Shown here is a 182-nucleotide RNA, a member of the family "malK-I RNA". Rfam classes the family as a cis-regulatory element.

RNA sequence: CUGACUGCGUGUGCGGCUCUCCGCUUUUUAAGUCGUACACAGCUUUAAUAAGGAGGAAAAAGCGACCCUUUGGCUCAGGGUGCGGCAGUGUGGAGACCUGUCGUAAGGCGGCGCGUCCCAAAGCGGGCGGCCGUGAGGGCGUUUCAUGCGAAGGCAGAACGCUCAGAGCUGCGAACAUGGCA
Numbered sequence: 001c002u003g004a005c006u007g008c009g010u011g012u013g014c015g016g017c018u019c020u021c022c023g024c025u026u027u028u029u030a031a032g033u034c035g036u037a038c039a040c041a042g043c044u045u046u047a048a049u050a051a052g053g054a055g056g057a058a059a060a061a062g063c064g065a066c067c068c069u070u071u072g073g074c075u076c077a078g079g080g081u082g083c084g085g086c087a088g089u090g091u092g093g094a095g096a097c098c099u100g101u102c103g104u105a106a107g108g109c110g111g112c113g114c115g116u117c118c119c120a121a122a123g124c125g126g127g128c129g130g131c132c133g134u135g136a137g138g139g140c141g142u143u144u145c146a147u148g149c150g151a152a153g154g155c156a157g158a159a160c161g162c163u164c165a166g167a168g169c170u171g172c173g174a175a176c177a178u179g180g181c182a
Stems, first nucleotide, its partner, number of pairs: 009040010067080004071171006081105008090097002108134005114129003137164008147156003
The base pairs follow the family's consensus structure, which is taken from published work.